[Rfam]
RNA sequence: AGUUUUGAUAGAGGUUGCGUAUUUCAUGAGUAGGCGGCUGGAUGUAUCCGGGUACAGGAGAAGGCUGGUGAAAGGGAAACACGCCGAAAGGUGCAGUACCUGGGGCUGUAUACUUGGGCAUAGGGCGAACAGCCAUAUGACUGUCAUCAGAGGUUGAUGAGGAGCUAUCUGAAAA
Dot-bracket structure: ......(((((.....((((.((((.......(.(((((.......................))))).)......)))).))))...((((((((((.......))))))).)))((.((((.(((.....))).)))).)).(((((((...)))))))....)))))......

Record summary:
The family of this 175-nucleotide RNA from Marvinbryantia formatexigens is "Lysine riboswitch aptamer". Taxonomically the source falls in Marvinbryantia formatexigens (Bacteria, Bacillati, Clostridia, Lachnospirales). A search with the family's covariance model found it, with a score of 98 bits.